[Rfam]
RNA sequence: UGCGGUCGGUUCCACCAAGGAUCGUCGGGCACGUACCUGCCCGUGGAAAGGAGUGC
Numbered sequence: 001u002g003c004g005g006u007c008g009g010u011u012c013c014a015c016c017a018a019g020g021a022u023c024g025u026c027g028g029g030c031a032c033g034u035a036c037c038u039g040c041c042c043g044u045g046g047a048a049a050g051g052a053g054u055g056c
Stems, first nucleotide, its partner, number of pairs: 010048005026043006